Small nucleolar RNA U83B: a 97-nucleotide sequence from Lepisosteus oculatus. Its family is annotated with RNA processing and nucleolus in the Gene Ontology. The base pairs follow the family's consensus structure. The match comes from Rfam's covariance-model search (75 bits). For this family Rfam cites "Characterisation of the U83 and U84 small nucleolar RNAs: two novel 2'-O-ribose methylation guide RNAs that lack complementarities to ribosomal RNAs" (Jady and Kiss, Nucleic Acids Res, 2000). U83B belongs to the C/D family of snoRNAs. U83B like U83A has no documented RNA target and they share the same host gene with the C/D box snoRNA U43 (RPL3). N.B. U83A/B/C have no sequence similarity with the U83 snoRNA that was cloned by Jady and Kiss (2000).

Nucleotides: 097
Base pairs, nucleotide, nucleotide: 001097002096003095004094005093
Number, partner (000 for none) and nucleotide at each position: 001097g002096g003095u004094g005093u006000g007000u008000c009000u010000g011000u012000g013000a014000u015000g016000a017000g018000c019000c020000c021000a022000c023000g024000g025000a026000a027000c028000a029000c030000u031000g032000c033000g034000c035000c036000a037000g038000g039000c040000g041000u042000g043000g044000c045000g046000c047000c048000c049000g050000a051000a052000a053000a054000g055000c056000a057000u058000g059000a060000g061000g062000a063000g064000a065000c066000u067000u068000u069000c070000c071000a072000u073000g074000c075000u076000g077000c078000c079000u080000u081000c082000c083000u084000u085000c086000u087000g088000a089000g090000a091000u092000u093005a094004c095003a096002c097001c